This 143-nucleotide RNA from Rhizobium etli belongs to the Rfam family "FMN riboswitch aptamer (RFN element)". The family's consensus secondary structure is taken from published work. Rfam links the family to the GO term FMN binding.

RNA sequence: CGCCGUUCUCAGGGCGGGGUGAAAGUCCCUACCGGCGGUAUGCAGUUUCGAUUGCGAGCCCGCGAGCGCCUUCCUCGGAAGGGUCAGCAGAUCAGGUGAGAUGCCUGAGCCGACGGUCAUAGUCCGGAUGAAAGAGAACGUGC
Numbered sequence: 001c002g003c004c005g006u007u008c009u010c011a012g013g014g015c016g017g018g019g020u021g022a023a024a025g026u027c028c029c030u031a032c033c034g035g036c037g038g039u040a041u042g043c044a045g046u047u048u049c050g051a052u053u054g055c056g057a058g059c060c061c062g063c064g065a066g067c068g069c070c071u072u073c074c075u076c077g078g079a080a081g082g083g084u085c086a087g088c089a090g091a092u093c094a095g096g097u098g099a100g101a102u103g104c105c106u107g108a109g110c111c112g113a114c115g116g117u118c119a120u121a122g123u124c125c126g127g128a129u130g131a132a133a134g135a136g137a138a139c140g141u142g143c
Stems, first nucleotide, its partner, number of pairs: 004140007017029003031123002033112002035063004058110002066088002092108005114126003
Dot-bracket structure: ...(((((((......(((.......))).[[((((((...................[[))))..((...................))...(((((.......)))))]])).(((.....]]))).......)))))))...